Shown here is a 103-nucleotide RNA sequence from Cyprinus carpio, a member of the family "Vault RNA".
Lineage of the source: Eukaryota > Deuterostomia > Otophysi > Cyprininae > Cyprinus.
Rfam describes the family as follows. This family of RNAs are found as part of the enigmatic vault ribonucleoprotein complex. The complex consists of a major vault protein (MVP), two minor vault proteins (VPARP and TEP1), and several small untranslated RNA molecules. It has been suggested that the vault complex is involved in drug resistance.
A search with the family's covariance model found it, with a score of 59 bits.
On this family, see Stadler et al., Mol Biol Evol 2009: "Evolution of Vault RNAs".

RNA sequence: GCGUUGGUUUAGCUCAGUGGUUACUUCCAAUUGACCAGAAGAUCACUGUCUCACGGCUGUCAAAAAUCCGGAGAUCCAACCACGGGCGUUGUCCAACGUUUUU
Numbered sequence: 001g002c003g004u005u006g007g008u009u010u011a012g013c014u015c016a017g018u019g020g021u022u023a024c025u026u027c028c029a030a031u032u033g034a035c036c037a038g039a040a041g042a043u044c045a046c047u048g049u050c051u052c053a054c055g056g057c058u059g060u061c062a063a064a065a066a067u068c069c070g071g072a073g074a075u076c077c078a079a080c081c082a083c084g085g086g087c088g089u090u091g092u093c094c095a096a097c098g099u100u101u102u103u
Stems, first nucleotide, its partner, number of pairs: 002098006012087004017083004025073004